[Rfam]
RNA: Small nucleolar RNA SNORD71
Organism: Homo sapiens
RNA sequence: AGAGUGCUGGUGGCUGAUGAGCCCAGGGCUGCUCUUGCUCACUUUGCUGACAGCACUCG
Numbered sequence: 001a002g003a004g005u006g007c008u009g010g011u012g013g014c015u016g017a018u019g020a021g022c023c024c025a026g027g028g029c030u031g032c033u034c035u036u037g038c039u040c041a042c043u044u045u046g047c048u049g050a051c052a053g054c055a056c057u058c059g
Base pairs, nucleotide, nucleotide: 002058003057004056005055006054007053008052009048010047012023013022014021015020025035026034027033028032